RNA sequence: GUGGUUCAGGCGCCCCACUCCUCCUCCCAGGGUCGCCUGAGGAACAACAGCACUCCUCCUCCCAGCUGUUGUUCGGUUCUUUUCGAAAGCCUGCCGCACCUCCUCCCGCGGCAGGCUUUUUCG
Numbered sequence: 001g002u003g004g005u006u007c008a009g010g011c012g013c014c015c016c017a018c019u020c021c022u023c024c025u026c027c028c029a030g031g032g033u034c035g036c037c038u039g040a041g042g043a044a045c046a047a048c049a050g051c052a053c054u055c056c057u058c059c060u061c062c063c064a065g066c067u068g069u070u071g072u073u074c075g076g077u078u079c080u081u082u083u084c085g086a087a088a089g090c091c092u093g094c095c096g097c098a099c100c101u102c103c104u105c106c107c108g109c110g111g112c113a114g115g116c117u118u119u120u121u122c123g
Stems, first nucleotide, its partner, number of pairs: 007039006014032003042074010087118011
Dot-bracket structure: ......((((((.(((.............))).))))))..((((((((((.............))))))))))............(((((((((((..........))))))))))).....
The record is a 123-nucleotide RNA from Rhizobium metallidurans, which matches "Alphaproteobacterial ar14" in Rfam.
The base pairs follow the family's consensus structure.
It scores 110 bits against the family's covariance model.
The literature on the family includes a 2012 paper in RNA Biol by del Val et al., "A survey of sRNA families in alpha-proteobacteria".
Rfam describes the family as follows. Smr14C2 was renamed NfeR1 (Nodule Formation Efficiency RNA) highly expressed in salt stress and during the symbiotic interaction on legume roots.
Rfam 15.1 lists 784 matches to the family in 332 species.
The family's RNA type in Rfam is small RNA.
The source organism's lineage runs through Bacteria, Pseudomonadota, Alphaproteobacteria, Hyphomicrobiales and Rhizobium.